[Rfam]
RNA sequence: AUUGCAAGUUCACGGCCAUAGCAGAAACGCUUAUGGUGCAGCCUGUCAGAUUAUAAUGAAUCAGUGAAUUCUGCU
Numbered sequence: 001a002u003u004g005c006a007a008g009u010u011c012a013c014g015g016c017c018a019u020a021g022c023a024g025a026a027a028c029g030c031u032u033a034u035g036g037u038g039c040a041g042c043c044u045g046u047c048a049g050a051u052u053a054u055a056a057u058g059a060a061u062c063a064g065u066g067a068a069u070u071c072u073g074c075u
Stems, first nucleotide, its partner, number of pairs: 014043003020075007028038002047064001049062004
Dot-bracket structure: .............[[[...(((((((.((.......))..]]]...(.((((......)))).)....)))))))

The record is a 75-nucleotide RNA sequence from Alligator sinensis, which matches "Mammalian CPEB3 ribozyme" in Rfam. Pairs were carried over by alignment from the consensus structure, which is taken from published work. A search with the family's covariance model found it, with a score of 39 bits.